RNA: Tryptophan operon leader
Organism: Shewanella mangrovi
RNA sequence: ACUGUUUGGUGGUGGCACUCCCCUUAACGCGGGUGGUGUGAAGCGCUGUAUACAUAAAUCAGCAGAAUUCAACAAGAAGCCCGCAUCAUGCGGGCUUCUUUGU
Dot-bracket structure: ........(((...(((((.(((.......))).)))))....)))...............................(((((((.....))))))).......